[Rfam]
RNA sequence: UUGGCUGGGCCAGAGGCUGCAACACAGGACAUGGGUCCUGCUUCCUCUUCCCGCUCGUGUCUUGUGUUGCAGCCAGUGGAGUAGC
Numbered sequence: 001u002u003g004g005c006u007g008g009g010c011c012a013g014a015g016g017c018u019g020c021a022a023c024a025c026a027g028g029a030c031a032u033g034g035g036u037c038c039u040g041c042u043u044c045c046u047c048u049u050c051c052c053g054c055u056c057g058u059g060u061c062u063u064g065u066g067u068u069g070c071a072g073c074c075a076g077u078g079g080a081g082u083a084g085c
Stems, first nucleotide, its partner, number of pairs: 011078002015074004020069011032057004
RNA: mir-187 microRNA precursor family
Organism: Etheostoma spectabile